[Rfam]
RNA sequence: UCGCGUUCUCAGGGCGGGGUGGAAGUCCCCACCGGCGGUAGGCGGCCUCGGCCGCGAGCCCGCGAGCUCGGGCCUCGCCUUCGGCGGGGGCGGGCAGACCAGGUCGAAUGCCUGGGCCGACGGUCAGAGUCCGGAUGGAAGAGAACAUGG
Number, nucleotide and partner (000 for none) at each position: 001u000002c000003g148004c000005g146006u145007u144008c143009u142010c141011a000012g000013g000014g000015c000016g000017g029018g028019g027020u000021g000022g000023a000024a000025g000026u000027c019028c018029c017030c000031a130032c129033c119034g118035g063036c062037g061038g060039u000040a000041g000042g000043c000044g000045g000046c000047c000048u000049c000050g000051g000052c000053c000054g000055c000056g000057a000058g117059c116060c038061c037062g036063c035064g000065a000066g095067c094068u093069c092070g091071g000072g000073c000074c000075u000076c000077g000078c000079c000080u000081u000082c000083g000084g000085c000086g000087g000088g000089g000090g000091c070092g069093g068094g067095c066096a000097g000098a000099c115100c114101a113102g112103g111104u000105c000106g000107a000108a000109u000110g000111c103112c102113u101114g100115g099116g059117c058118c034119g033120a000121c133122g132123g131124u000125c000126a000127g000128a000129g032130u031131c123132c122133g121134g000135a000136u000137g000138g000139a000140a000141g010142a009143g008144a007145a006146c005147a000148u003149g000150g000
The record is a 150-nucleotide RNA sequence from Aureimonas endophytica, which matches "FMN riboswitch aptamer (RFN element)" in Rfam. The organism belongs to Aureimonas, within Bacteria. The match comes from Rfam's covariance-model search (89 bits). Rfam links the family to the GO term FMN binding.